[Rfam]
RNA sequence: UCUCGUAAUAGAGGUGCAAAACUUAAGAGUAUGCUGUCAUAGACGUGUGGCGUUGUAAUGGACAGUUGAAAGGAUGUUUUGCCGAAAUGAAAUGAAUCCACAAUUCAUUUUGUUGGGACUGCAUUUAAGAAAUGUAGUACUGUCGCAUAAUAAGUAUGCGGGGAGCUAUUGAAGAG
Numbered sequence: 001u002c003u004c005g006u007a008a009u010a011g012a013g014g015u016g017c018a019a020a021a022c023u024u025a026a027g028a029g030u031a032u033g034c035u036g037u038c039a040u041a042g043a044c045g046u047g048u049g050g051c052g053u054u055g056u057a058a059u060g061g062a063c064a065g066u067u068g069a070a071a072g073g074a075u076g077u078u079u080u081g082c083c084g085a086a087a088u089g090a091a092a093u094g095a096a097u098c099c100a101c102a103a104u105u106c107a108u109u110u111u112g113u114u115g116g117g118a119c120u121g122c123a124u125u126u127a128a129g130a131a132a133u134g135u136a137g138u139a140c141u142g143u144c145g146c147a148u149a150a151u152a153a154g155u156a157u158g159c160g161g162g163g164a165g166c167u168a169u170u171g172a173a174g175a176g
Stems, first nucleotide, its partner, number of pairs: 006171006016082007024074001033066005086114012115141002118138008143161007

Record summary
The family of this 176-nucleotide RNA sequence is "Lysine riboswitch aptamer". It scores 122 bits against the family's covariance model. Its family is annotated with lysine biosynthetic process in the Gene Ontology. Rfam 15.1 lists 3,224 matches to the family in 1,923 species.